The family of this 135-nucleotide RNA from Odocoileus virginianus is "U8 small nucleolar RNA".
RNA sequence: UUGUCAGGGGGGAUAAUCCUUAUUGUUCCUCUUUUAGGAGGGCAGAAUAGAACGUGAUGAGUGGAGCUCGCAUGAUUUAUGAUUAAGGGCUCUCCAUAAUCAGGACUUGCAACACCCUGAUUGCUUCUAUCUGAU
Numbered sequence: 001u002u003g004u005c006a007g008g009g010g011g012g013a014u015a016a017u018c019c020u021u022a023u024u025g026u027u028c029c030u031c032u033u034u035u036a037g038g039a040g041g042g043c044a045g046a047a048u049a050g051a052a053c054g055u056g057a058u059g060a061g062u063g064g065a066g067c068u069c070g071c072a073u074g075a076u077u078u079a080u081g082a083u084u085a086a087g088g089g090c091u092c093u094c095c096a097u098a099a100u101c102a103g104g105a106c107u108u109g110c111a112a113c114a115c116c117c118u119g120a121u122u123g124c125u126u127c128u129a130u131c132u133g134a135u
Stems, first nucleotide, its partner, number of pairs: 023045003027042006074092002077089002080085001097123008